The family of this 83-nucleotide RNA from Muraenolepis orangiensis is "mir-190 microRNA precursor family". Rfam links the family to the GO terms RISC complex and miRNA-mediated post-transcriptional gene silencing. The source organism's lineage runs through Eukaryota, Chordata, Eurypterygia, Zeiogadaria and Muraenolepis. The match comes from Rfam's covariance-model search (70 bits).
RNA sequence: GAGGCUGUGUGAUAUGUUUGAUAUUCGGUUGUUCUCCUGUGUUUAUCACGUCAACUAAAUAUCAGACAUAUUCCUACAGAGUC
Numbered sequence: 001g002a003g004g005c006u007g008u009g010u011g012a013u014a015u016g017u018u019u020g021a022u023a024u025u026c027g028g029u030u031g032u033u034c035u036c037c038u039g040u041g042u043u044u045a046u047c048a049c050g051u052c053a054a055c056u057a058a059a060u061a062u063c064a065g066a067c068a069u070a071u072u073c074c075u076a077c078a079g080a081g082u083c
Stems, first nucleotide, its partner, number of pairs: 005079005011072015027056005